Rfam assigns this 82-nucleotide RNA sequence from Hibiscus trionum to the family "MIR473 microRNA precursor family".
Taxonomically the source falls in Hibiscus (Eukaryota, Viridiplantae, Tracheophyta, Malvales).
The family has 6 seed sequences and 189 matches in Rfam 15.1.
Gene Ontology terms of the family: miRNA-mediated post-transcriptional gene silencing and RISC complex.
For this family Rfam cites "Novel and mechanical stress-responsive MicroRNAs in Populus trichocarpa that are absent from Arabidopsis" (Lu et al., Plant Cell, 2005).

RNA sequence: CUUUUUCACUCUCUUUCUAAGGCUUCUCACUGCUAAGUUAUAGUAUUACAGUUCGAGGCCUUCGGAAGAGAGUGGAGAAAAG
Numbered sequence: 001c002u003u004u005u006u007c008a009c010u011c012u013c014u015u016u017c018u019a020a021g022g023c024u025u026c027u028c029a030c031u032g033c034u035a036a037g038u039u040a041u042a043g044u045a046u047u048a049c050a051g052u053u054c055g056a057g058g059c060c061u062u063c064g065g066a067a068g069a070g071a072g073u074g075g076a077g078a079a080a081a082g
Stems, first nucleotide, its partner, number of pairs: 006075010017064001019062008